[Rfam]
RNA sequence: GGUAUUGUUUACCUCCACAAGAUAAGCCCCGGAAACUUAAUCUAAGUUGAGUUAAGCAAAAC
Dot-bracket structure: .....((((((.......(.(.((((.........)))).).).........))))))....
Numbered sequence: 001g002g003u004a005u006u007g008u009u010u011a012c013c014u015c016c017a018c019a020a021g022a023u024a025a026g027c028c029c030c031g032g033a034a035a036c037u038u039a040a041u042c043u044a045a046g047u048u049g050a051g052u053u054a055a056g057c058a059a060a061a062c
Stems, first nucleotide, its partner, number of pairs: 006058006019043001021041001023039004
About this RNA:
Shown here is a 62-nucleotide sequence from Pediococcus claussenii, a member of the family "Ribosomal protein L13 leader". Gene Ontology term of the family: regulation of gene expression. The family's RNA type in Rfam is cis-regulatory leader. This family is a putative r-protein leader autoregulatory structure found in B. subtilis and other low-GC Gram-positive bacteria. It is located in the 5' untranslated regions of mRNAs encoding the L13-S9 (rplM-rpsI) ribosomal protein operon. Taxonomically the source falls in Pediococcus claussenii (Bacteria, Bacillati, Bacillota, Lactobacillaceae). Pairs were carried over by alignment from the consensus structure, which was predicted with CMfinder.